Annotation
The family of this 386-nucleotide sequence from Bacillus sp. J14TS2 is "Bacterial RNase P class B". Rfam links the family to the GO terms dimeric ribonuclease P complex, ribonuclease P activity and tRNA processing. For this family Rfam cites "Ribonuclease P: unity and diversity in a tRNA processing ribozyme" (Frank and Pace, Annu Rev Biochem, 1998). By type it is a ribozyme.
[Rfam]
RNA sequence: ACAUCUGGGUAAUCGCUGCUCAUCGCAGAGGAAAGUCCAUGCUCACACGGUGCUGAGAUGCCCGUAGUGUUCACGCCUAGCGAAACAAUAAGCUGGGGCAGCUAAGAUCAUUCUUAGUUGACGGCAGGGAAAAUACCUACGUUAUUUUGAUAAUAUGGUGUUGCUACCUUUAAAGUGCCACAGUGACGGAGCUCUGUUGGAAACGACAGAGGUGGAACGAGGUAAACCCCGUGAGUGAGAAACCCAAAUUUUGGUAGGGGAACUUUUUCGCAGGAAAUGAACGAAGAAAAAGGCAAGAUGAACUUGCAGAUAGAUGAUUACCACCGGAGUACGAGGUCUACCUAUGAUCGCUUGGAGUACGAUGGUACAGAACAUGGCUUAUAAGA
Dot-bracket structure: ...(((((((((((.((((.....))))....[[[.[[[[[(((((((((.((......)))))).....(((((((((((..........))))))((((((((((....))))))))).)((.(((.....((((...(((((....)))))..))))......))).....(((((............((((((((....)))))))).........)))..))))))))))))))...(((...........)))...(((((((................)))))))(((((.....)))))........))))))).(((..((((........................))))..))).......]]]]]]]].).)))